[Rfam]
RNA sequence: AUAAUUUUAAAUAACAUCACUCGUAUAUACUCGGUAAUAUGGUCCGAGCGUUUCUACCUAGUUCCCAAUGAAAGAACUGGACUACGGGUUAAAGUAUUCGGUCG
Dot-bracket structure: ..................(((((((....(((((.........))))).........(((((((.........)))))))..)))))))...............
RNA: Purine riboswitch aptamer
Organism: Bacillus mycoides